[Rfam]
RNA: Group II catalytic intron D1-D4-1
RNA sequence: UAACCGCAGCUGAGAAGUUGCGCUGAAUUCGCAGGGGUCAGCAGAGACCAUAGUACGGAAGUAUGGGACGCCGGAAACCGGAAGGGC
Numbered sequence: 001u002a003a004c005c006g007c008a009g010c011u012g013a014g015a016a017g018u019u020g021c022g023c024u025g026a027a028u029u030c031g032c033a034g035g036g037g038u039c040a041g042c043a044g045a046g047a048c049c050a051u052a053g054u055a056c057g058g059a060a061g062u063a064u065g066g067g068a069c070g071c072c073g074g075a076a077a078c079c080g081g082a083a084g085g086g087c
Stems, first nucleotide, its partner, number of pairs: 001025002005022007038045002048086002056080003064075001